[Rfam]
Background:
The family of this 75-nucleotide sequence from Papaver somniferum is "Plastid-ycf2 5UTR RNA". A reference for the family is Richter et al. (2023), "Retrograde signaling in plants: A critical review focusing on the GUN pathway and beyond", Plant Commun.
RNA sequence: GUGCAUCCAUCAGGAUUUGAACCUACGAAUUUGUCAAUUAUGAGUUGGGCGCUUUAACCAUUCAACCAUGGAUAC
Numbered sequence: 001g002u003g004c005a006u007c008c009a010u011c012a013g014g015a016u017u018u019g020a021a022c023c024u025a026c027g028a029a030u031u032u033g034u035c036a037a038u039u040a041u042g043a044g045u046u047g048g049g050c051g052c053u054u055u056a057a058c059c060a061u062u063c064a065a066c067c068a069u070g071g072a073u074a075c
Base pairs, nucleotide, nucleotide: 003075005073006072007071008070012024013023014022040069041068042067044066045065046064047063048062049061051059
NCBI's taxonomy places the organism under Eukaryota, Tracheophyta, Mesangiospermae, Ranunculales, Papaver. Plastid ycf2 is a non-coding RNA (ncRNA) recognised in plastids. It was found in the prime untranslated region (5UTR) of ycf2 genes, it presents a tRNA-like motif which suggests it can be involved in mRNA maturation, particularly involved in defining the precise 5' end of the transcript. Rfam classes the family as a cis-regulatory element.